A member of the RNA family "RNase MRP" from Magallana gigas, 249 nucleotides long. NCBI's taxonomy places the organism under Eukaryota, Bilateria, Protostomia, Ostreidae, Magallana. Its Rfam clan is "RNaseP clan". The family's consensus secondary structure is taken from published work. Rfam classes the family as a ribozyme.

RNA sequence: GUACUCUGACAAGACCUGCCUUGGAAGCAACAUACUGAAACUUCAUGUUUCUCUUGGCUUCUGGGAAAGUCCCCAGACCCUGGGUAGAGAGUACUCUGAGGUAACCCUCUCAUAUUCUGAACCAAUGUCCCAACAAACAGCUGUGACACCAUAGUGGUGGAGCUGGGACUGUUACAGAACAUUGUCAUAGCAUAGUUACGCAGGUACUGCAGUCGGCAGUAACAGAAUGGGGCUUACUAGGCCAGAGUG
Numbered sequence: 001g002u003a004c005u006c007u008g009a010c011a012a013g014a015c016c017u018g019c020c021u022u023g024g025a026a027g028c029a030a031c032a033u034a035c036u037g038a039a040a041c042u043u044c045a046u047g048u049u050u051c052u053c054u055u056g057g058c059u060u061c062u063g064g065g066a067a068a069g070u071c072c073c074c075a076g077a078c079c080c081u082g083g084g085u086a087g088a089g090a091g092u093a094c095u096c097u098g099a100g101g102u103a104a105c106c107c108u109c110u111c112a113u114a115u116u117c118u119g120a121a122c123c124a125a126u127g128u129c130c131c132a133a134c135a136a137a138c139a140g141c142u143g144u145g146a147c148a149c150c151a152u153a154g155u156g157g158u159g160g161a162g163c164u165g166g167g168a169c170u171g172u173u174a175c176a177g178a179a180c181a182u183u184g185u186c187a188u189a190g191c192a193u194a195g196u197u198a199c200g201c202a203g204g205u206a207c208u209g210c211a212g213u214c215g216g217c218a219g220u221a222a223c224a225g226a227a228u229g230g231g232g233c234u235u236a237c238u239a240g241g242c243c244a245g246a247g248u249g
Base pairs, nucleotide, nucleotide: 002249003248004247005246006245007244008243010241014205015204016203017202018201019200022063023062024061025060026059027058028057037051038050039049040048041047067235068234069233071232072231073230074229083095084094085093086092098109099108100107101106113179115177118176119175121173123171127169128168129167130166138165139164140163141162148158149157150156151155207219208218209217210216